The family of this 72-nucleotide sequence from Papaver nudicaule is "Small nucleolar RNA R16". A reference for the family is Galardi et al. (2002), "Purified box C/D snoRNPs are able to reproduce site-specific 2'-O-methylation of target RNA in vitro", Mol Cell Biol.
RNA sequence: UAAGGCAAGUGAUGAAUAAUUCUUAUCCUACUGAAUAUCAAUUGUGUUGCAAAUCUAUUGUCUGAUGCCUUA
Numbered sequence: 001u002a003a004g005g006c007a008a009g010u011g012a013u014g015a016a017u018a019a020u021u022c023u024u025a026u027c028c029u030a031c032u033g034a035a036u037a038u039c040a041a042u043u044g045u046g047u048u049g050c051a052a053a054u055c056u057a058u059u060g061u062c063u064g065a066u067g068c069c070u071u072a
Base pairs, nucleotide, nucleotide: 003070004069005068006067007066